[Rfam]
RNA sequence: CCCCCAAGGGGAAGCGAAGACCCUAUGGAGCUUUACUGCAGGCUGUUGCUGGGACAUGGUCGCUACUGUGCAGGGUAGGUAGGAGUCGUUACACAGGUAUCCGCGCUAGCGGACCACCGAGACACACAUGAAACACUACCCGGUAGUGACUGUGACCCUCACUCCUGGCGGAGGACACCAAUAGCCGGGCAGUUUGACUGGGGCGGUACGCGCUCGAAAGAAUAUCGAGCGCGCCCUAAGGCUAUCUCAGCCGUGACAGAGACGCGGCGAAGAGCGCAAGAGCAAAAGAUAGCUUGACAGUGUCACUACCAACACGGUGACGCUGACGCGAAAGCGUGGUCUAGCGAACGGAUGCGCCUGCUUGAUGCGGGCCGAUCUACGACAGAAAAGCUACCCUAGGGAUAACAGAGUCGUCACCGGCAAGAGCACAUAUCGACCCGGUGGCUUGCUACCUCGAUGUCGGUUCCCUCCAUCCUGCCCGUGCAGCAGCGGGCAAGGGUGAGGUUGUUCGCCUAUUAAAGGAGGUCGUGAGCUGGGUUUAGACCGUCGUGAGACAGGUCGGCUGCUAUCUAUUGGGGGUGUAAC
Numbered sequence: 001c002c003c004c005c006a007a008g009g010g011g012a013a014g015c016g017a018a019g020a021c022c023c024u025a026u027g028g029a030g031c032u033u034u035a036c037u038g039c040a041g042g043c044u045g046u047u048g049c050u051g052g053g054a055c056a057u058g059g060u061c062g063c064u065a066c067u068g069u070g071c072a073g074g075g076u077a078g079g080u081a082g083g084a085g086u087c088g089u090u091a092c093a094c095a096g097g098u099a100u101c102c103g104c105g106c107u108a109g110c111g112g113a114c115c116a117c118c119g120a121g122a123c124a125c126a127c128a129u130g131a132a133a134c135a136c137u138a139c140c141c142g143g144u145a146g147u148g149a150c151u152g153u154g155a156c157c158c159u160c161a162c163u164c165c166u167g168g169c170g171g172a173g174g175a176c177a178c179c180a181a182u183a184g185c186c187g188g189g190c191a192g193u194u195u196g197a198c199u200g201g202g203g204c205g206g207u208a209c210g211c212g213c214u215c216g217a218a219a220g221a222a223u224a225u226c227g228a229g230c231g232c233g234c235c236c237u238a239a240g241g242c243u244a245u246c247u248c249a250g251c252c253g254u255g256a257c258a259g260a261g262a263c264g265c266g267g268c269g270a271a272g273a274g275c276g277c278a279a280g281a282g283c284a285a286a287a288g289a290u291a292g293c294u295u296g297a298c299a300g301u302g303u304c305a306c307u308a309c310c311a312a313c314a315c316g317g318u319g320a321c322g323c324u325g326a327c328g329c330g331a332a333a334g335c336g337u338g339g340u341c342u343a344g345c346g347a348a349c350g351g352a353u354g355c356g357c358c359u360g361c362u363u364g365a366u367g368c369g370g371g372c373c374g375a376u377c378u379a380c381g382a383c384a385g386a387a388a389a390g391c392u393a394c395c396c397u398a399g400g401g402a403u404a405a406c407a408g409a410g411u412c413g414u415c416a417c418c419g420g421c422a423a424g425a426g427c428a429c430a431u432a433u434c435g436a437c438c439c440g441g442u443g444g445c446u447u448g449c450u451a452c453c454u455c456g457a458u459g460u461c462g463g464u465u466c467c468c469u470c471c472a473u474c475c476u477g478c479c480c481g482u483g484c485a486g487c488a489g490c491g492g493g494c495a496a497g498g499g500u501g502a503g504g505u506u507g508u509u510c511g512c513c514u515a516u517u518a519a520a521g522g523a524g525g526u527c528g529u530g531a532g533c534u535g536g537g538u539u540u541a542g543a544c545c546g547u548c549g550u551g552a553g554a555c556a557g558g559u560c561g562g563c564u565g566c567u568a569u570c571u572a573u574u575g576g577g578g579g580u581g582u583a584a585c
Base pairs, nucleotide, nucleotide: 001579002578003577004576005575006574007573010571011570012569014566015565022400023399024398025397027396028395029392030391031390032389033388035193036192037191038190042185043184044183045182046181047180048179051158052157053156055154056153057152058151059150060149061148062147063146064145065144066143067142068141078140079139080138081137082136085123086122087121100113101112102111103110104109162173163172164171165170196209197207198206199205210232211231212230213229214228215227235339236338241293242292243291244290245289246288247273248272250268251267252266253265254264255263274283275282298325299324300323301322302321303320304319305318306317327336329334350378351377352376353375354373356372357371358370359369360368409450410449411448413447414444415443416442417441418440419439420438424434425433461536462534463533464532465531466528467525468524469523470522471521474499475498478493479492480491481490482489502514503513504512505511542560543559544558545557546555547554548553
Rfam assigns this 585-nucleotide part of an RNA from Halomicrobium mukohataei to the family "Archaeal large subunit ribosomal RNA".
Taxonomically the source falls in Halomicrobium mukohataei (Archaea, Methanobacteriati, Halobacteriales, Haloarculaceae).